[Rfam]
Shown here is an 82-nucleotide RNA, a member of the family "SmY spliceosomal RNA". It is annotated as a spliceosomal small nuclear RNA. The literature on the family includes a 2007 paper in RNA by MacMorris et al., "A novel family of C. elegans snRNPs contains proteins associated with trans-splicing".
RNA sequence: UCAUUGAUUUCUAAACUCGAAGGGCCUUCCUUAAGACCCCGAUUUUAUAAUUUUUGGGAACCCUGAUCUGCCGGUCAGGGUA
Numbered sequence: 001u002c003a004u005u006g007a008u009u010u011c012u013a014a015a016c017u018c019g020a021a022g023g024g025c026c027u028u029c030c031u032u033a034a035g036a037c038c039c040c041g042a043u044u045u046u047a048u049a050a051u052u053u054u055u056g057g058g059a060a061c062c063c064u065g066a067u068c069u070g071c072c073g074g075u076c077a078g079g080g081u082a
Stems, first nucleotide, its partner, number of pairs: 022039003026035003060081009